[Rfam]
RNA sequence: AGCGAGAAGGGCAAACCCGCCGUAAGGCGGGGACGCAAAGCCACGGGACCCUACGGGGUGAGCCGGGAUACCGAAA
Numbered sequence: 001a002g003c004g005a006g007a008a009g010g011g012c013a014a015a016c017c018c019g020c021c022g023u024a025a026g027g028c029g030g031g032g033a034c035g036c037a038a039a040g041c042c043a044c045g046g047g048a049c050c051c052u053a054c055g056g057g058g059u060g061a062g063c064c065g066g067g068a069u070a071c072c073g074a075a076a
Stems, first nucleotide, its partner, number of pairs: 003073002011036002016031006034062001039069001041067002044065003048059002
Rfam assigns this 76-nucleotide RNA sequence from Pengzhenrongella sicca to the family "c-di-GMP-I-GGC riboswitch aptamer". The organism belongs to Pengzhenrongella, within Bacteria. Rfam 15.1 lists 1,298 matches to the family in 717 species. For this family Rfam cites "Structural and biochemical determinants of ligand binding by the c-di-GMP riboswitch " (Smith et al., Biochemistry, 2010).